This 82-nucleotide RNA sequence from Flavobacterium johnsoniae belongs to the Rfam family "Flavo-1 RNA". NCBI's taxonomy places the organism under Bacteria, Pseudomonadati, Bacteroidota, Flavobacteriaceae, Flavobacterium johnsoniae. The sequence is in the family's curated seed alignment.
RNA sequence: ACCUAGCCCCGAUAGAAGUAGAAAUCCUUUUUUGUUUUUUCUUUAAAAACAAAAAAGAUUGUAAGGAAUAGCGGGAUUAGCU
Numbered sequence: 001a002c003c004u005a006g007c008c009c010c011g012a013u014a015g016a017a018g019u020a021g022a023a024a025u026c027c028u029u030u031u032u033u034g035u036u037u038u039u040u041c042u043u044u045a046a047a048a049a050c051a052a053a054a055a056a057g058a059u060u061g062u063a064a065g066g067a068a069u070a071g072c073g074g075g076a077u078u079a080g081c082u
Base pairs, nucleotide, nucleotide: 009074010073011072013070014069019064023060024059025058026057029055030054031053032052033051034050035049036048037047038046039045